[Rfam]
RNA sequence: CAGUGAGACCUUCAUCCAACGGAUCGUCGGGUACGUACCUACCCGGAGAAGGAGUAAUUA
Numbered sequence: 001c002a003g004u005g006a007g008a009c010c011u012u013c014a015u016c017c018a019a020c021g022g023a024u025c026g027u028c029g030g031g032u033a034c035g036u037a038c039c040u041a042c043c044c045g046g047a048g049a050a051g052g053a054g055u056a057a058u059u060a
Stems, first nucleotide, its partner, number of pairs: 010051004015047002028045006
The family of this 60-nucleotide sequence is "msiK RNA". The sequence is in the family's curated seed alignment. Pairs were carried over by alignment from the consensus structure, which is taken from published work.